Archaeal large subunit ribosomal RNA: a 300-nucleotide part of an RNA from an uncultured Nitrososphaerota archaeon.
RNA sequence: CGCUGACUGAGGGGAACUUGCCCUUAGUACGAGAGGAACGGGGCAAGGCGGCCUCUGGUCUACCGGUCCUCCGAUAGGGGGCGCCGGGUAGCUAAGCCGCUGGGGAUAACCCCUGAAAGCAUCUAAGGGGGAAGCCCCUCCCGAAAAGAGUCAGCGUUCCCGAUCCCUUCUCGCCCGCAAGGGCGGGAGGGGUGAGGGUGAAGGGCGGCCGUAAAAGACGGCGUUGAUAGGAUGGGGGUGUACGCGGGAAGGCCCUUCGGGGCCGACCCGCUCAGCCCACCAUCACUAAUAGCCCGAAAC
Numbered sequence: 001c002g003c004u005g006a007c008u009g010a011g012g013g014g015a016a017c018u019u020g021c022c023c024u025u026a027g028u029a030c031g032a033g034a035g036g037a038a039c040g041g042g043g044c045a046a047g048g049c050g051g052c053c054u055c056u057g058g059u060c061u062a063c064c065g066g067u068c069c070u071c072c073g074a075u076a077g078g079g080g081g082c083g084c085c086g087g088g089u090a091g092c093u094a095a096g097c098c099g100c101u102g103g104g105g106a107u108a109a110c111c112c113c114u115g116a117a118a119g120c121a122u123c124u125a126a127g128g129g130g131g132a133a134g135c136c137c138c139u140c141c142c143g144a145a146a147a148g149a150g151u152c153a154g155c156g157u158u159c160c161c162g163a164u165c166c167c168u169u170c171u172c173g174c175c176c177g178c179a180a181g182g183g184c185g186g187g188a189g190g191g192g193u194g195a196g197g198g199u200g201a202a203g204g205g206c207g208g209c210c211g212u213a214a215a216a217g218a219c220g221g222c223g224u225u226g227a228u229a230g231g232a233u234g235g236g237g238g239u240g241u242a243c244g245c246g247g248g249a250a251g252g253c254c255c256u257u258c259g260g261g262g263c264c265g266a267c268c269c270g271c272u273c274a275g276c277c278c279a280c281c282a283u284c285a286c287u288a289a290u291a292g293c294c295c296g297a298a299a300c
Stems, first nucleotide, its partner, number of pairs: 001156008011142004017047008048100005056094003063087005068081005103137003110130005203295004208222004228288003231284005236278003244271005251264004
Dot-bracket structure: ((((((((..((((..((((((((...............))))))))(((((...(((....((((((((((....))))).)))))....))).)))))..(((....(((((...........)))))....))).))))......))))))))..............................................((((.((((.......)))).....(((((((((((.....(((((..((((......))))..)))))....))).))))).)))...)))).....

It is one of the family's seed sequences. A reference for the family is Cannone et al. (2002), "The comparative RNA web (CRW) site: an online database of comparative sequence and structure information for ribosomal, intron, and other RNAs", BMC Bioinformatics.